[Rfam]
RNA sequence: UGACGGACUUCUGGAGAGACCGAUUAUUUUACGGCACCGAAGGGGCAAGGCAUUGAUGCUCAAUCUCUCAGGUAAAAGGACAGAAGAAAAAAC
Numbered sequence: 001u002g003a004c005g006g007a008c009u010u011c012u013g014g015a016g017a018g019a020c021c022g023a024u025u026a027u028u029u030u031a032c033g034g035c036a037c038c039g040a041a042g043g044g045g046c047a048a049g050g051c052a053u054u055g056a057u058g059c060u061c062a063a064u065c066u067c068u069c070a071g072g073u074a075a076a077a078g079g080a081c082a083g084a085a086g087a088a089a090a091a092a093c
Base pairs, nucleotide, nucleotide: 008086009085010084011083012082013081020034021033022032036073037072038071039069040068043067044066045065049060050059
Glycine riboswitch aptamer: a 93-nucleotide RNA sequence from Streptococcus sp. sy004. The source organism's lineage runs through Bacteria, Bacillota, Lactobacillales, Streptococcaceae and Streptococcus. A search with the family's covariance model found it, with a score of 66 bits.